[Rfam]
RNA sequence: UGGUAGAUGCACCCUGAUGAACGUCCCCGGUUGAUUAAACCGGGGAUUUUUUUC
Numbered sequence: 001u002g003g004u005a006g007a008u009g010c011a012c013c014c015u016g017a018u019g020a021a022c023g024u025c026c027c028c029g030g031u032u033g034a035u036u037a038a039a040c041c042g043g044g045g046a047u048u049u050u051u052u053u054c
Stems, first nucleotide, its partner, number of pairs: 002013003024046009
Dot-bracket structure: .(((......)))..........(((((((((.....)))))))))........
Rfam assigns this 54-nucleotide RNA sequence from Oscillatoriaceae cyanobacterium M7585_C2015_266 to the family "Nitrogen stress-induced RNA 1".
A reference for the family is Ionescu et al. (2010), "Heterocyst-specific transcription of NsiR1, a non-coding RNA encoded in a tandem array of direct repeats in cyanobacteria", J Mol Biol.
The pairing is the family consensus, mapped onto this sequence.
Lineage of the source: Bacteria > Cyanobacteriota > Cyanophyceae > Oscillatoriophycideae > Oscillatoriaceae.
The family's RNA type in Rfam is small RNA.